Background
Lysine riboswitch aptamer: a 176-nucleotide RNA sequence from Shewanella intestini. A search with the family's covariance model found it, with a score of 90 bits. Lineage of the source: Bacteria > Pseudomonadati > Pseudomonadota > Gammaproteobacteria > Shewanella. Riboswitches are metabolite binding domains within certain messenger RNAs that serve as precision sensors for their corresponding targets.
RNA sequence: AGACACAGAAGAGGAGCGUUAGCUAGGUAGUAAGUUUGAGGAAGCUCAAUUCCGAUGAUGACUUAUGAGGGAGAUUAGCGCCGAGGUAAAUUAAGGUUGAUGCCCUUUGAAUACCGGUCGUACAGGUUGAAUCCUGGCGAUUGUCACCUGUUUUUUGGUGGAGAGCUUCUGGUGGU
Numbered sequence: 001a002g003a004c005a006c007a008g009a010a011g012a013g014g015a016g017c018g019u020u021a022g023c024u025a026g027g028u029a030g031u032a033a034g035u036u037u038g039a040g041g042a043a044g045c046u047c048a049a050u051u052c053c054g055a056u057g058a059u060g061a062c063u064u065a066u067g068a069g070g071g072a073g074a075u076u077a078g079c080g081c082c083g084a085g086g087u088a089a090a091u092u093a094a095g096g097u098u099g100a101u102g103c104c105c106u107u108u109g110a111a112u113a114c115c116g117g118u119c120g121u122a123c124a125g126g127u128u129g130a131a132u133c134c135u136g137g138c139g140a141u142u143g144u145c146a147c148c149u150g151u152u153u154u155u156u157g158g159u160g161g162a163g164a165g166c167u168u169c170u171g172g173u174g175g176u
Stems, first nucleotide, its partner, number of pairs: 006171006016081007024073001030066007085115004091109001093107004116142006123136004144161005150155001